[Rfam]
Shown here is a 137-nucleotide RNA from Vibrio azureus, a member of the family "Histidine operon leader". The base pairs follow the family's consensus structure, which is taken from published work. At least 6 amino acid operons are known to be regulated by attenuation. In each a leader sequence of 150-200 bp is found upstream of the first gene in the operon. A search with the family's covariance model found it, with a score of 78 bits. Rfam classes the family as a cis-regulatory leader. For this family Rfam cites "Attenuation in amino acid biosynthetic operons" (Kolter and Yanofsky, Annu Rev Genet, 1982).
RNA sequence: UCAUCACCACCAUCACCCAAUCUAGUCUUUCGGGAGAUGUACGCAUACCCGGGAGGCAGGAUACUCCCGGAGAUGAAAUUAAAAGUUAGAUAAAUUUCAACCCUCGGGAGGCCAAUACCUCCCGAGGGUUUUUUAAU
Numbered sequence: 001u002c003a004u005c006a007c008c009a010c011c012a013u014c015a016c017c018c019a020a021u022c023u024a025g026u027c028u029u030u031c032g033g034g035a036g037a038u039g040u041a042c043g044c045a046u047a048c049c050c051g052g053g054a055g056g057c058a059g060g061a062u063a064c065u066c067c068c069g070g071a072g073a074u075g076a077a078a079u080u081a082a083a084a085g086u087u088a089g090a091u092a093a094a095u096u097u098c099a100a101c102c103c104u105c106g107g108g109a110g111g112c113c114a115a116u117a118c119c120u121c122c123c124g125a126g127g128g129u130u131u132u133u134u135a136a137u
Stems, first nucleotide, its partner, number of pairs: 009046001011039004017034002048070002051068005099130012